RNA sequence: AUACUUUCCUGGCAGUGGAGACACCAUGAUCAGGCAGGUGGUUUUCCCAGGGUGAGGCUCAUCCCUUGCACUCUGGGAGUGCUGACCCCUUAGAUUUCCCCAAAUGUGGGAAACGCGAUUGCAUAAUUUGUGGUAGGUGGGGGACUGCUUUUGCACUCUCCCCUA
Numbered sequence: 001a002u003a004c005u006u007u008c009c010u011g012g013c014a015g016u017g018g019a020g021a022c023a024c025c026a027u028g029a030u031c032a033g034g035c036a037g038g039u040g041g042u043u044u045u046c047c048c049a050g051g052g053u054g055a056g057g058c059u060c061a062u063c064c065c066u067u068g069c070a071c072u073c074u075g076g077g078a079g080u081g082c083u084g085a086c087c088c089c090u091u092a093g094a095u096u097u098c099c100c101c102a103a104a105u106g107u108g109g110g111a112a113a114c115g116c117g118a119u120u121g122c123a124u125a126a127u128u129u130g131u132g133g134u135a136g137g138u139g140g141g142g143g144a145c146u147g148c149u150u151u152u153g154c155a156c157u158c159u160c161c162c163c164u165a
Stems, first nucleotide, its partner, number of pairs: 012122004017047005023042005049090004054086001056083003060079001062077003093116001095113003099109002139163004144159001147156001
Dot-bracket structure: ...........((((.(((((.(((((..........)))))))))).((((.(.(((.(.(((..........))).).)))..)))))..(.(((.((.......)).)))..)..))))................((((.(..(........)..)))))..